Shown here is a 70-nucleotide sequence from Suricata suricatta, a member of the family "Small nucleolar RNA SNORD2". A reference for the family is Zhou et al. (2004), "Identification of a novel box C/D snoRNA from mouse nucleolar cDNA library", Gene. The match comes from Rfam's covariance-model search (67 bits). Rfam 15.1 lists 1,116 matches to the family in 660 species. The source organism's lineage runs through Eukaryota, Eumetazoa, Chordata, Herpestidae and Suricata. Rfam classes the family as a C/D-box small nucleolar RNA.

RNA sequence: UAGUGAAAUGAUGGCAGUCAUCUUUCGGGACUGACCUGCAAUGAAGAGGUCAAGUUAUUGCCUGUCACUU
Dot-bracket structure: .(((((..........................................................))))).